[Rfam]
RNA sequence: GGAUGUGAGGGCGAUCUGGCUGCGACAUCUGUCACCCCAUUGAUCGCCAGGGUUGAUUCGGCUGAUCUGGCUGGCUAGGCGGGUGUCCCCUUCCUCCCUCACCGCUCCAUGUGCGUCCCUCCCGAAGCUGCGCGCUCGGUCUUCGGUCAAGGGUAUACGAGUAGCUGCGCUCCCCUGCUAGAACCUCCAAACAAGCUCUCAAGGUCCAUUUGUAGGAGAACGUAGGGUAGUCAAGCUUCCAAGACUCCAGACACAUCCAAAUGAGGCGCUGCAUGUGGCAGUCUGCCUUUCUUU
Numbered sequence: 001g002g003a004u005g006u007g008a009g010g011g012c013g014a015u016c017u018g019g020c021u022g023c024g025a026c027a028u029c030u031g032u033c034a035c036c037c038c039a040u041u042g043a044u045c046g047c048c049a050g051g052g053u054u055g056a057u058u059c060g061g062c063u064g065a066u067c068u069g070g071c072u073g074g075c076u077a078g079g080c081g082g083g084u085g086u087c088c089c090c091u092u093c094c095u096c097c098c099u100c101a102c103c104g105c106u107c108c109a110u111g112u113g114c115g116u117c118c119c120u121c122c123c124g125a126a127g128c129u130g131c132g133c134g135c136u137c138g139g140u141c142u143u144c145g146g147u148c149a150a151g152g153g154u155a156u157a158c159g160a161g162u163a164g165c166u167g168c169g170c171u172c173c174c175c176u177g178c179u180a181g182a183a184c185c186u187c188c189a190a191a192c193a194a195g196c197u198c199u200c201a202a203g204g205u206c207c208a209u210u211u212g213u214a215g216g217a218g219a220a221c222g223u224a225g226g227g228u229a230g231u232c233a234a235g236c237u238u239c240c241a242a243g244a245c246u247c248c249a250g251a252c253a254c255a256u257c258c259a260a261a262u263g264a265g266g267c268g269c270u271g272c273a274u275g276u277g278g279c280a281g282u283c284u285g286c287c288u289u290u291c292u293u294u
Stems, first nucleotide, its partner, number of pairs: 001108003005102007013093002018090002024087010035074002037070003042067004046062003117161001118159001120157001122139004127135002140153003164236003170230002173227006185218004191213005259294003263289005268282005

The record is a 294-nucleotide RNA, which matches "7SK RNA" in Rfam.
The base pairs follow the family's consensus structure, which is taken from published work.
By type it is a non-coding RNA gene.